[Rfam]
RNA sequence: UGACCAGGGGGCCGGGAUACUUUGGCUGUUGUGUAGCCGAAGUGACCUAGGGGUACAGGGAGUGCCUCCGCAAGGGCCGGGUCAGGCAUAAA
Numbered sequence: 001u002g003a004c005c006a007g008g009g010g011g012c013c014g015g016g017a018u019a020c021u022u023u024g025g026c027u028g029u030u031g032u033g034u035a036g037c038c039g040a041a042g043u044g045a046c047c048u049a050g051g052g053g054u055a056c057a058g059g060g061a062g063u064g065c066c067u068c069c070g071c072a073a074g075g076g077c078c079g080g081g082u083c084a085g086g087c088a089u090a091a092a
Base pairs, nucleotide, nucleotide: 001084002083003082004081005080010078011077012076013075014048015047016046018044020042021041022040023039024038025037026036027035050068051067052066053065054064055063056062
Dot-bracket structure: (((((....(((((((.(.((((((((.......)))))))).).))).(((((((.....)))))))......)))).)))))........
This 92-nucleotide RNA from Pseudomonas sp. URIL14HWK12:I9 belongs to the Rfam family "ivy-DE RNA". Lineage of the source: Bacteria > Pseudomonadati > Pseudomonadota > Gammaproteobacteria > Pseudomonas. It scores 94 bits against the family's covariance model. It is annotated as a cis-regulatory element.